RNA sequence: AUACUUACCUGGUACAGGGAGCACCGUGAUCAAAAAGGCGGUCUCCCCAGGUCGAGGCCUUUCCAUUGCACUCCGGUUAGGCUGAAGCCUGCGAUUGCCCCAAAUGUGGGCAACUCGGGUACGCAAUUUUUUAGUGUGGGGGACUGCGUUCGCGCUAACCCCCG
Numbered sequence: 001a002u003a004c005u006u007a008c009c010u011g012g013u014a015c016a017g018g019g020a021g022c023a024c025c026g027u028g029a030u031c032a033a034a035a036a037g038g039c040g041g042u043c044u045c046c047c048c049a050g051g052u053c054g055a056g057g058c059c060u061u062u063c064c065a066u067u068g069c070a071c072u073c074c075g076g077u078u079a080g081g082c083u084g085a086a087g088c089c090u091g092c093g094a095u096u097g098c099c100c101c102a103a104a105u106g107u108g109g110g111c112a113a114c115u116c117g118g119g120u121a122c123g124c125a126a127u128u129u130u131u132u133a134g135u136g137u138g139g140g141g142g143a144c145u146g147c148g149u150u151c152g153c154g155c156u157a158a159c160c161c162c163c164g
Base pairs, nucleotide, nucleotide: 012122013121014120015119017047018046019045020044021043023042024041025040026039027038049090050089051088052087056083057082058081060079063076064075092117093116094115095113096112097111099109100108138163139162140161141160142159146155147154148153

The record is a 164-nucleotide RNA sequence from Mytilus edulis, which matches "U1 spliceosomal RNA" in Rfam. A search with the family's covariance model found it, with a score of 144 bits.